[Rfam]
RNA: 6S / SsrS RNA
RNA sequence: GUCUUGCUGCGGCUCACGUCGAAGGCUUCACAUCCCGGGGACCUUAAUCAUCCUCGAAGGGAGCUGUCCCUGUUCGGGUCCGUGGACCCGCGCACACGGCGCCCACCUGGCUAUCCAGGUCCGAGGGGAUUGAAACCGCCUUCACGGUUCUACGCGGCGCCGCC
Numbered sequence: 001g002u003c004u005u006g007c008u009g010c011g012g013c014u015c016a017c018g019u020c021g022a023a024g025g026c027u028u029c030a031c032a033u034c035c036c037g038g039g040g041a042c043c044u045u046a047a048u049c050a051u052c053c054u055c056g057a058a059g060g061g062a063g064c065u066g067u068c069c070c071u072g073u074u075c076g077g078g079u080c081c082g083u084g085g086a087c088c089c090g091c092g093c094a095c096a097c098g099g100c101g102c103c104c105a106c107c108u109g110g111c112u113a114u115c116c117a118g119g120u121c122c123g124a125g126g127g128g129a130u131u132g133a134a135a136c137c138g139c140c141u142u143c144a145c146g147g148u149u150c151u152a153c154g155c156g157g158c159g160c161c162g163c164c
Stems, first nucleotide, its partner, number of pairs: 002162001005159007012150001015147001017146003033129003036125001039122005059104003063100005072093002075090006